[Rfam]
RNA sequence: UGGAGAAGGGGAGCACGUGCAAAGAUGGAGAGUUAGCCGCGAGAGAGAGAGAGAGAGAGAGAGGCUUUGCACGUGCCCUGCUUCUCCAAC
Numbered sequence: 001u002g003g004a005g006a007a008g009g010g011g012a013g014c015a016c017g018u019g020c021a022a023a024g025a026u027g028g029a030g031a032g033u034u035a036g037c038c039g040c041g042a043g044a045g046a047g048a049g050a051g052a053g054a055g056a057g058a059g060a061g062a063g064g065c066u067u068u069g070c071a072c073g074u075g076c077c078c079u080g081c082u083u084c085u086c087c088a089a090c
Stems, first nucleotide, its partner, number of pairs: 001088008010079002013076012
This 90-nucleotide sequence from Ensete ventricosum belongs to the Rfam family "MIR164 microRNA precursor family". It scores 73 bits against the family's covariance model. Its family is annotated with miRNA-mediated post-transcriptional gene silencing and RISC complex in the Gene Ontology. Lineage of the source: Eukaryota > commelinids > Zingiberales > Musaceae > Ensete.